[Rfam]
RNA sequence: UGAUCCGGCCGACAACCAAAAGAACCCGGGCAGAGAACCCCACCUACCUACCGCCGCCCAACUCCUCACCCCAUCGGGUGACUUGGGCGCGGAAGCGUCCGGAAUGCGGUUACGCUCGCCGCAGUUCCACUGCGACGGAGCACCACAACCGCACACAGAACGGCCCCCGGCGGGACGGCAAUCCCGGUCCGAGGGCCUGAUCACAAGGAAGCGAAACCCUUCCCG
Numbered sequence: 001u002g003a004u005c006c007g008g009c010c011g012a013c014a015a016c017c018a019a020a021a022g023a024a025c026c027c028g029g030g031c032a033g034a035g036a037a038c039c040c041c042a043c044c045u046a047c048c049u050a051c052c053g054c055c056g057c058c059c060a061a062c063u064c065c066u067c068a069c070c071c072c073a074u075c076g077g078g079u080g081a082c083u084u085g086g087g088c089g090c091g092g093a094a095g096c097g098u099c100c101g102g103a104a105u106g107c108g109g110u111u112a113c114g115c116u117c118g119c120c121g122c123a124g125u126u127c128c129a130c131u132g133c134g135a136c137g138g139a140g141c142a143c144c145a146c147a148a149c150c151g152c153a154c155a156c157a158g159a160a161c162g163g164c165c166c167c168c169g170g171c172g173g174g175a176c177g178g179c180a181a182u183c184c185c186g187g188u189c190c191g192a193g194g195g196c197c198u199g200a201u202c203a204c205a206a207g208g209a210a211g212c213g214a215a216a217c218c219c220u221u222c223c224c225g
Base pairs, nucleotide, nucleotide: 001203002202008058010056011055066081067080068079069078070077071076098139099138100137101136162197163196164195165194166193168191169190170189172185173184174183175182207223208222209221210220211219
Streptomyces sRNA 4677: a 225-nucleotide RNA sequence from Streptomyces inhibens. Rfam's curators write: Located in the intergenic region between anti-sigma factor SCO4677 gene and a putative regulatory protein gene SCO4676. scr4677 expression requires the SCO4677 activity and scr4677 sRNA itself seem to affect the levels of the SCO4676-associated transcripts. On this family, see Hindra et al., PLoS One 2014: "Complex intra-operonic dynamics mediated by a small RNA in Streptomyces coelicolor". Taxonomically the source falls in Streptomyces (Bacteria, Bacillati, Actinomycetota, Streptomycetaceae). It is annotated as a small RNA.